[Rfam]
RNA sequence: UUCGACCUCGCUGUAUUUCCUAUACAGCCCCCUGCAUAGCCGUCGCCGACGCAUUCCUUUAUGAAUCAUUUCGCGAUCCAGUCGCCUUCAAGUGCGGCGCGGC
Numbered sequence: 001u002u003c004g005a006c007c008u009c010g011c012u013g014u015a016u017u018u019c020c021u022a023u024a025c026a027g028c029c030c031c032c033u034g035c036a037u038a039g040c041c042g043u044c045g046c047c048g049a050c051g052c053a054u055u056c057c058u059u060u061a062u063g064a065a066u067c068a069u070u071u072c073g074c075g076a077u078c079c080a081g082u083c084g085c086c087u088u089c090a091a092g093u094g095c096g097g098c099g100c101g102g103c
Stems, first nucleotide, its partner, number of pairs: 010028006039103004044099005073085005